[Rfam]
RNA sequence: AUUCUCUGGUUUCUCUUCAAUUCGUAUAAAUCUUUCGCCUUUUACUAAAGAUUUCCGUGGAGAGGAACAUUCAUGAGUCUGAAUAUUUUUUGAUGCCCUAUAUUUAUAUGGGGCG
Numbered sequence: 001a002u003u004c005u006c007u008g009g010u011u012u013c014u015c016u017u018c019a020a021u022u023c024g025u026a027u028a029a030a031u032c033u034u035u036c037g038c039c040u041u042u043u044a045c046u047a048a049a050g051a052u053u054u055c056c057g058u059g060g061a062g063a064g065g066a067a068c069a070u071u072c073a074u075g076a077g078u079c080u081g082a083a084u085a086u087u088u089u090u091u092g093a094u095g096c097c098c099u100a101u102a103u104u105u106a107u108a109u110g111g112g113g114c115g
Base pairs, nucleotide, nucleotide: 004077005076006075009068010067011066012065013064014063015062016061017060018059019058028054029053030052031051032050033049034048035047095114096113097112098111099110100109

The record is a 115-nucleotide sequence from Eptatretus burgeri, which matches "U5 spliceosomal RNA" in Rfam. NCBI's taxonomy places the organism under Eukaryota, Opisthokonta, Vertebrata, Cyclostomata, Eptatretus. It scores 96 bits against the family's covariance model. The family has 180 seed sequences and 28,527 matches in Rfam 15.1.